[Rfam]
RNA sequence: CAAUUCUGUUCGUAGGAACAAAUAGAAGCAGAUCUAUUUUAUACCCGAUAAGUACCAAUACGCAAUGG
Number, nucleotide and partner (000 for none) at each position: 001c000002a000003a000004u000005u022006c000007u020008g019009u018010u017011c016012g000013u000014a000015g000016g011017a010018a009019c008020a007021a000022a005023u000024a000025g000026a000027a000028g000029c000030a000031g000032a000033u000034c000035u000036a000037u000038u000039u000040u000041a000042u000043a000044c000045c068046c067047g000048a000049u000050a000051a000052g061053u060054a059055c000056c000057a000058a000059u054060a053061c052062g000063c000064a000065a000066u000067g046068g045
The record is a 68-nucleotide sequence, which matches "Plastid-clpP 5UTR RNA" in Rfam. Rfam describes the family as follows. Plastid clpP is a non-coding RNA (ncRNA) recognised in plastids. It was found in the prime untranslated region (5UTR) of a protease complex subunit (clpP) in plastids, suggesting a posible cis-regulatory function. Rfam 15.1 lists 2,105 matches to the family in 526 species. The literature on the family includes a 2023 paper in Plant Commun by Richter et al., "Retrograde signaling in plants: A critical review focusing on the GUN pathway and beyond". The base pairs follow the family's consensus structure, which was predicted with LocARNA.